[Rfam]
RNA sequence: GGCCUAAAGCAUCCGUAGCUGGCUUUGCAAGUCUCCGGUUAAAUCAACCUGCUCAACAGAUUGGCCGCUGGAGAUACUACAAGGCUAGGGAGUGGGAGAGGCAGACGGUAUUCGGGGGGUAGGGGUAAAAUCCUCUGAUCCUCUGAGGACCACCAGUGGCGAAGGCGGUCUGCCAGAACACGUUCGACAGUGAGGGAUGAAAGCUGGGGGAGCAAACCGGAUUAGAUACCCGGGUAGUCCCAGCUGUAAACGAUGCAAACUCGGUGAAGCAUUGGCUUAAUGCUAAUGCUGUGCCGCAGGGAAGCCGUUAAGUUUGCCGCCUGGGAAGUACGGUCGCAAGAUUGAAACUUAAAGGAAU
Numbered sequence: 001g002g003c004c005u006a007a008a009g010c011a012u013c014c015g016u017a018g019c020u021g022g023c024u025u026u027g028c029a030a031g032u033c034u035c036c037g038g039u040u041a042a043a044u045c046a047a048c049c050u051g052c053u054c055a056a057c058a059g060a061u062u063g064g065c066c067g068c069u070g071g072a073g074a075u076a077c078u079a080c081a082a083g084g085c086u087a088g089g090g091a092g093u094g095g096g097a098g099a100g101g102c103a104g105a106c107g108g109u110a111u112u113c114g115g116g117g118g119g120u121a122g123g124g125g126u127a128a129a130a131u132c133c134u135c136u137g138a139u140c141c142u143c144u145g146a147g148g149a150c151c152a153c154c155a156g157u158g159g160c161g162a163a164g165g166c167g168g169u170c171u172g173c174c175a176g177a178a179c180a181c182g183u184u185c186g187a188c189a190g191u192g193a194g195g196g197a198u199g200a201a202a203g204c205u206g207g208g209g210g211a212g213c214a215a216a217c218c219g220g221a222u223u224a225g226a227u228a229c230c231c232g233g234g235u236a237g238u239c240c241c242a243g244c245u246g247u248a249a250a251c252g253a254u255g256c257a258a259a260c261u262c263g264g265u266g267a268a269g270c271a272u273u274g275g276c277u278u279a280a281u282g283c284u285a286a287u288g289c290u291g292u293g294c295c296g297c298a299g300g301g302a303a304g305c306c307g308u309u310a311a312g313u314u315u316g317c318c319g320c321c322u323g324g325g326a327a328g329u330a331c332g333g334u335c336g337c338a339a340g341a342u343u344g345a346a347a348c349u350u351a352a353a354g355g356a357a358u
Stems, first nucleotide, its partner, number of pairs: 001321003009318001011198004016192001018191003022085006030078002032074008045063003049059003089185003092181003100174007107151002111147008122133003159166002203244006212238002217233004255317006263295004268290009299306002323350003332343004

Shown here is a 358-nucleotide part of an RNA from Candidatus Nitrosotalea sp. TS, a member of the family "Archaeal small subunit ribosomal RNA". Gene Ontology terms of the family: structural constituent of ribosome and ribosome. The base pairs follow the family's consensus structure, which is taken from published work. The literature on the family includes a 2001 paper in Science by Yusupov et al., "Crystal structure of the ribosome at 5.5 A resolution". Lineage of the source: Archaea > Nitrososphaerota > Nitrososphaeria > Nitrosotaleaceae > Nitrosotalea.